[Rfam]
RNA sequence: CGGUCGGCAGACACCGAGGCGUCGCUGCUCCUGCAAGGGAGAGCUAAACCUGCCA
Numbered sequence: 001c002g003g004u005c006g007g008c009a010g011a012c013a014c015c016g017a018g019g020c021g022u023c024g025c026u027g028c029u030c031c032u033g034c035a036a037g038g039g040a041g042a043g044c045u046a047a048a049c050c051u052g053c054c055a
Stems, first nucleotide, its partner, number of pairs: 001016004028041004
This 55-nucleotide sequence from Phaeobacter inhibens belongs to the Rfam family "COG3860 RNA". By type it is a cis-regulatory element. NCBI's taxonomy places the organism under Bacteria, Rhodobacterales, Roseobacteraceae, Phaeobacter, Phaeobacter inhibens. The base pairs follow the family's consensus structure, which is taken from published work.